[Rfam]
RNA sequence: UACAACUAAUAUAUCGAGAAAUGGAAUGAAAGCCGUCAAGUUGAGCUGAAACACUUCCACUAAUACUCCUACAUGCAAAAUAUGAUAGUAGCCAUUAAUUGUAUGAAACUAGGUGAAGUCGGCUGAACAAUACCUAAGUGAGAUUCUUUCAUAAGGUAAUGGAUAGGUCGGGUGGCUGAAAA
Number, nucleotide and partner (000 for none) at each position: 001u000002a000003c000004a000005a000006c000007u000008a000009a000010u000011a000012u000013a000014u000015c000016g000017a000018g057019a056020a055021a000022u053023g052024g000025a000026a000027u000028g000029a000030a000031a047032g046033c045034c000035g000036u000037c000038a000039a000040g000041u000042u000043g000044a000045g033046c032047u031048g000049a000050a000051a000052c023053a022054c000055u020056u019057c018058c174059a173060c172061u171062a000063a000064u000065a000066c000067u000068c113069c112070u111071a110072c105073a104074u103075g102076c101077a100078a099079a000080a000081u000082a095083u094084g093085a000086u000087a000088g000089u000090a000091g000092c000093c084094a083095u082096u000097a000098a000099u078100u077101g076102u075103a074104u073105g072106a000107a000108a000109c000110u071111a070112g069113g068114u000115g000116a000117a000118g000119u000120c170121g169122g168123c167124u166125g000126a000127a000128c161129a160130a000131u158132a157133c156134c155135u154136a000137a000138g000139u000140g150141a149142g000143a000144u000145u000146c000147u000148u000149u141150c140151a000152u000153a000154a135155g134156g133157u132158a131159a000160u129161g128162g000163a000164u000165a000166g124167g123168u122169c121170g120171g061172g060173u059174g058175g000176c000177u000178g000179a000180a000181a000182a000
Shown here is a 182-nucleotide RNA sequence from Salipaludibacillus neizhouensis, a member of the family "Group II catalytic intron D1-D4-5". Lineage of the source: Bacteria > Bacillati > Bacilli > Bacillaceae > Salipaludibacillus. For this family Rfam cites "The ins and outs of group II introns" (Bonen and Vogel, Trends Genet, 2001). About the family: Group II introns are found in rRNA, tRNA and mRNA of organelles in fungi, plants and protists, and also in mRNA in bacteria. A search with the family's covariance model found it, with a score of 113 bits.